Notes
A member of the RNA family "c-di-GMP-I riboswitch aptamer" from Noviherbaspirillum saxi, 86 nucleotides long. The family's consensus secondary structure is taken from published work.
[Rfam]
RNA sequence: AUCCGAUAUUGGCAAACCCGCUGAAAAGCGGGGACGCAAAGCUACUGGUCUAAAGGCGCCUCGCCCAUGACAGCAGGGCUGCAUGC
Numbered sequence: 001a002u003c004c005g006a007u008a009u010u011g012g013c014a015a016a017c018c019c020g021c022u023g024a025a026a027a028g029c030g031g032g033g034a035c036g037c038a039a040a041g042c043u044a045c046u047g048g049u050c051u052a053a054a055g056g057c058g059c060c061u062c063g064c065c066c067a068u069g070a071c072a073g074c075a076g077g078g079c080u081g082c083a084u085g086c
Base pairs, nucleotide, nucleotide: 012037013036017032018031019030020029021028022027040080041079042078043077045076046075047074048071049070050069055065056064057063058062